[Rfam]
Notes:
Rfam assigns this 191-nucleotide sequence from Treponema denticola to the family "TD-1 RNA". A reference for the family is Weinberg et al. (2007), "Identification of 22 candidate structured RNAs in bacteria using the CMfinder comparative genomics pipeline", Nucleic Acids Res. It is annotated as a cis-regulatory element. The base pairs follow the family's consensus structure, which is taken from published work. The family has 28 seed sequences and 147 matches in Rfam 15.1. Clan: TD (Treponema denticola) motifs.

RNA sequence: GUUUAUCUGCCGAGUUUGCCUUUCGGCAAACGUCGCAUUAUUAUAUAUGCUUUUUCACUUUGUUGCAAAAGCACGGAAAAAACUUUUUUCGCAAAUUUAUUUGCUAUCCGCUUUCGCGGAUACGAUGAAAAAUUUCCUUACAGAACAAAGCCGAAAGGCUCUGAUAUUUGCUGCAAAAAGUUUUUAUAGGG
Dot-bracket structure: ...........(((((((((....))))))).)).............(((((((............))))))).....((((.(((((..((((((.....................................................................))))))...).)))).))))......